[Rfam]
RNA sequence: UCGGCCCCGGUUCACGUUUGCCGCGCCCCGCGGAAGCGACCCGGAGCC
Numbered sequence: 001u002c003g004g005c006c007c008c009g010g011u012u013c014a015c016g017u018u019u020g021c022c023g024c025g026c027c028c029c030g031c032g033g034a035a036g037c038g039a040c041c042c043g044g045a046g047c048c
Stems, first nucleotide, its partner, number of pairs: 003048003007044004015038005021033005